[Rfam]
Description:
Shown here is a 52-nucleotide RNA sequence from Aliterella atlantica, a member of the family "Nitrogen stress-induced RNA 1". A search with the family's covariance model found it, with a score of 46 bits.
RNA sequence: AGGUAGAUGCACCCUGGUUAAGCUCUAGAGUCAAAAUCUAGAGCUUUUUUCU
Dot-bracket structure: .(((......)))........((((((((.(...).))))))))........